The family of this 97-nucleotide RNA from Propionigenium maris is "Purine riboswitch aptamer". The match comes from Rfam's covariance-model search (59 bits).

RNA sequence: CAAAAGAAUAGCAGUGUCAUUUAUAUAUGUCAGGAAUGGGCCUGACGUCUCUACAGUUAACCGUAAAUUAACUACUAUAGAUGAGGUAUGAGCAGAG
Numbered sequence: 001c002a003a004a005a006g007a008a009u010a011g012c013a014g015u016g017u018c019a020u021u022u023a024u025a026u027a028u029g030u031c032a033g034g035a036a037u038g039g040g041c042c043u044g045a046c047g048u049c050u051c052u053a054c055a056g057u058u059a060a061c062c063g064u065a066a067a068u069u070a071a072c073u074a075c076u077a078u079a080g081a082u083g084a085g086g087u088a089u090g091a092g093c094a095g096a097g
Stems, first nucleotide, its partner, number of pairs: 018083008029046006055073006